[Rfam]
RNA sequence: AGCUCUGUGAUUAAAAUGCCUAAAGGCAAUAUACGCUAUUCUGAUUAUAUAUGAGCAGAGAAUCAUUUACAAUGAGAGCU
Numbered sequence: 001a002g003c004u005c006u007g008u009g010a011u012u013a014a015a016a017u018g019c020c021u022a023a024a025g026g027c028a029a030u031a032u033a034c035g036c037u038a039u040u041c042u043g044a045u046u047a048u049a050u051a052u053g054a055g056c057a058g059a060g061a062a063u064c065a066u067u068u069a070c071a072a073u074g075a076g077a078g079c080u
Stems, first nucleotide, its partner, number of pairs: 001080005
Background: The family of this 80-nucleotide sequence from Apium graveolens is "Small nucleolar RNA U54". From the family's description: U54 is a C/D box small nucleolar RNA, which acts as a methylation guide for 18S ribosomal RNA in plants. Rfam 15.1 lists 614 matches to the family in 206 species. Rfam links the family to the GO terms nucleolus and RNA processing.